RNA: PyrR binding site
Organism: Thermaerobacillus caldiproteolyticus
RNA sequence: AUUCCCUUUUUAAAGGCAGUCCCGUGAGGCUGACAAAGGGGGAACAGGGAAAUAGUCUAAGAUUAAAACUAGCUUUUUAGGCUACGACUGUACCUCUUUGCACCUCUGAAGGGCAAAGAGGUUUUUUUA
Numbered sequence: 001a002u003u004c005c006c007u008u009u010u011u012a013a014a015g016g017c018a019g020u021c022c023c024g025u026g027a028g029g030c031u032g033a034c035a036a037a038g039g040g041g042g043a044a045c046a047g048g049g050a051a052a053u054a055g056u057c058u059a060a061g062a063u064u065a066a067a068a069c070u071a072g073c074u075u076u077u078u079a080g081g082c083u084a085c086g087a088c089u090g091u092a093c094c095u096c097u098u099u100g101c102a103c104c105u106c107u108g109a110a111g112g113g114c115a116a117a118g119a120g121g122u123u124u125u126u127u128u129a
Stems, first nucleotide, its partner, number of pairs: 003041007017032005053084010090124001092122010